[Rfam]
RNA sequence: UCCUCGUUCAAAGGAUCGCAGUCGAAGCACACAAACGGAGCAGACACAUUUUGUUGUCUCUCAGCCUGUCAUGGGCUAGUCAAUGCUUUGGGAGAAAGUCCCCGGACGACCUUUUCUACACUCGUUGUAUUAAAAGGAACGCGGAAACGCGCCGCCAUAGAAGCAUACUGCGGCUUCAUUUCUCCUCUCCUUACCUUUCUUCAGAUCGACCUUUGCCGUCGCUUGUACUCGCUUUCGGCGCUUUUGAUUGCUGCUUCUGGGGGAGGGGGAGACCUUAUGGAUGAAGAUAUGAGUCCGAGCUCCUCUGAUCUCAGUUGUGGUGGAGCAUUUGCAAUGGCUGCGGGGAGGCGGGGAAGUGUCUUCGGUCUGGGUUGGGGUUUAUGGGAGGGUGGAGGCUUUCGUCGAGAGUGAUAGUUAUGCGAUUGCUCCCCUUGGCCAGCUUCACGGUUGGUCGAGGGGUGUAACUCGAUGGGGCUUAUUCUUGAGACGAGG
Numbered sequence: 001u002c003c004u005c006g007u008u009c010a011a012a013g014g015a016u017c018g019c020a021g022u023c024g025a026a027g028c029a030c031a032c033a034a035a036c037g038g039a040g041c042a043g044a045c046a047c048a049u050u051u052u053g054u055u056g057u058c059u060c061u062c063a064g065c066c067u068g069u070c071a072u073g074g075g076c077u078a079g080u081c082a083a084u085g086c087u088u089u090g091g092g093a094g095a096a097a098g099u100c101c102c103c104g105g106a107c108g109a110c111c112u113u114u115u116c117u118a119c120a121c122u123c124g125u126u127g128u129a130u131u132a133a134a135a136g137g138a139a140c141g142c143g144g145a146a147a148c149g150c151g152c153c154g155c156c157a158u159a160g161a162a163g164c165a166u167a168c169u170g171c172g173g174c175u176u177c178a179u180u181u182c183u184c185c186u187c188u189c190c191u192u193a194c195c196u197u198u199c200u201u202c203a204g205a206u207c208g209a210c211c212u213u214u215g216c217c218g219u220c221g222c223u224u225g226u227a228c229u230c231g232c233u234u235u236c237g238g239c240g241c242u243u244u245u246g247a248u249u250g251c252u253g254c255u256u257c258u259g260g261g262g263g264a265g266g267g268g269g270a271g272a273c274c275u276u277a278u279g280g281a282u283g284a285a286g287a288u289a290u291g292a293g294u295c296c297g298a299g300c301u302c303c304u305c306u307g308a309u310c311u312c313a314g315u316u317g318u319g320g321u322g323g324a325g326c327a328u329u330u331g332c333a334a335u336g337g338c339u340g341c342g343g344g345g346a347g348g349c350g351g352g353g354a355a356g357u358g359u360c361u362u363c364g365g366u367c368u369g370g371g372u373u374g375g376g377g378u379u380u381a382u383g384g385g386a387g388g389g390u391g392g393a394g395g396c397u398u399u400c401g402u403c404g405a406g407a408g409u410g411a412u413a414g415u416u417a418u419g420c421g422a423u424u425g426c427u428c429c430c431c432u433u434g435g436c437c438a439g440c441u442u443c444a445c446g447g448u449u450g451g452u453c454g455a456g457g458g459g460u461g462u463a464a465c466u467c468g469a470u471g472g473g474g475c476u477u478a479u480u481c482u483u484g485a486g487a488c489g490a491g492g
Stems, first nucleotide, its partner, number of pairs: 002492006008485004014424006022092001023090006038067001040065002043062002096477003100474004140151004293396003301392002304389003310385004353363004426461001428459013
Description
The record is a 492-nucleotide RNA from Pseudogymnoascus sp. WSF 3629, which matches "RNase MRP" in Rfam. Rfam links the family to the GO terms ribonuclease MRP complex, ribonuclease MRP activity and rRNA processing. NCBI's taxonomy places the organism under Eukaryota, Fungi, Dikarya, Ascomycota, Pseudogymnoascus. The match comes from Rfam's covariance-model search (98 bits). It is annotated as a ribozyme.